[Rfam]
Rfam assigns this 264-nucleotide sequence from Gelria sp. Kuro-4 to the family "Bacterial large signal recognition particle RNA". Rfam classes the family as a non-coding RNA gene. The source organism's lineage runs through Bacteria, Bacillati, Bacillota, Thermoanaerobacterales and Gelria.
RNA sequence: CCGUGCUAGACGGGGAGGUAGCGGUGCCCUGUACCUGCAAUCCGCUGGAGCAGGGUCGAAUUCCUGCCCGAGGCCUGGUCUUGUGGGGUCCGGCCGCGGUAAGCAGUGAGGAAAGCUGGGUCCUGCGCAACGUAAAUUCAUGAACCCCGUCAGGCCCGGGAGGGAGCAGCGGUAAGUGAACCCUUGCGUGUGCCGCAGGGAAACCUGGCUGGAGCCGGCUGCCGGGGUAACGCCCGGAAGGCCCUGUCGACGGCAGGUGCACGG
Numbered sequence: 001c002c003g004u005g006c007u008a009g010a011c012g013g014g015g016a017g018g019u020a021g022c023g024g025u026g027c028c029c030u031g032u033a034c035c036u037g038c039a040a041u042c043c044g045c046u047g048g049a050g051c052a053g054g055g056u057c058g059a060a061u062u063c064c065u066g067c068c069c070g071a072g073g074c075c076u077g078g079u080c081u082u083g084u085g086g087g088g089u090c091c092g093g094c095c096g097c098g099g100u101a102a103g104c105a106g107u108g109a110g111g112a113a114a115g116c117u118g119g120g121u122c123c124u125g126c127g128c129a130a131c132g133u134a135a136a137u138u139c140a141u142g143a144a145c146c147c148c149g150u151c152a153g154g155c156c157c158g159g160g161a162g163g164g165a166g167c168a169g170c171g172g173u174a175a176g177u178g179a180a181c182c183c184u185u186g187c188g189u190g191u192g193c194c195g196c197a198g199g200g201a202a203a204c205c206u207g208g209c210u211g212g213a214g215c216c217g218g219c220u221g222c223c224g225g226g227g228u229a230a231c232g233c234c235c236g237g238a239a240g241g242c243c244c245u246g247u248c249g250a251c252g253g254c255a256g257g258u259g260c261a262c263g264g
Stems, first nucleotide, its partner, number of pairs: 001264006009057003012030004017025001019023001034054005063257006072248003078242005084236004091232002095226001097224004103219002106215002114210008122199006128190002131188005137180005147172004155164003